[Rfam]
RNA: Plastid-psbA-1 3UTR RNA
RNA sequence: UUGAAGCGAAGGAGUAGUAUACCACUACUUCUUUUCUACUUUAUAAAUUUUGAAGCGAAGGAGUAGUGUACCACUACUUCUUUAAAGAAGUAGUGGUACACUACUCCUUC
Numbered sequence: 001u002u003g004a005a006g007c008g009a010a011g012g013a014g015u016a017g018u019a020u021a022c023c024a025c026u027a028c029u030u031c032u033u034u035u036c037u038a039c040u041u042u043a044u045a046a047a048u049u050u051u052g053a054a055g056c057g058a059a060g061g062a063g064u065a066g067u068g069u070a071c072c073a074c075u076a077c078u079u080c081u082u083u084a085a086a087g088a089a090g091u092a093g094u095g096g097u098a099c100a101c102u103a104c105u106c107c108u109u110c
Stems, first nucleotide, its partner, number of pairs: 008022001057110013071096003075092005